[Rfam]
Nucleotides: 080
Base pairs, nucleotide, nucleotide: 014071015070016069017068018067019066021064022063024061026059027058029056030055031054032053
Number, partner (000 for none) and nucleotide at each position: 001000g002000u003000c004000u005000c006000c007000c008000u009000g010000g011000u012000g013000c014071a015070g016069u017068g018067g019066u020000u021064c022063u023000a024061a025000u026059c027058a028000g029056u030055u031054c032053a033000a034000c035000a036000g037000u038000u039000c040000u041000c042000u043000a044000u045000c046000g047000a048000a049000a050000u051000u052000g053032u054031g055030a056029a057000a058027u059026g060000u061024u062000u063022a064021g065000g066019a067018c068017c069016a070015c071014u072000u073000g074000a075000c076000c077000u078000g079000g080000g
The record is an 80-nucleotide RNA sequence from Callorhinchus milii, which matches "mir-203 microRNA precursor family" in Rfam. A search with the family's covariance model found it, with a score of 93 bits. The literature on the family includes a 2003 paper in Science by Lim et al., "Vertebrate microRNA genes".